[Rfam]
Nucleotides: 072
Base pairs, nucleotide, nucleotide: 018072019071020070023067026064031061032060033059034058035057036056037055040052041051042050043049
Number, partner (000 for none) and nucleotide at each position: 001000a002000u003000u004000u005000u006000a007000u008000u009000g010000a011000a012000u013000a014000a015000g016000a017000u018072a019071g020070g021000c022000c023067u024000u025000g026064a027000u028000a029000u030000u031061a032060a033059g034058c035057a036056c037055u038000u039000u040052g041051g042050g043049a044000c045000g046000u047000u048000c049043u050042c051041c052040c053000u054000u055037a056036g057035u058034g059033c060032u061031u062000u063000u064026u065000u066000g067023a068000u069000u070020u071019c072018u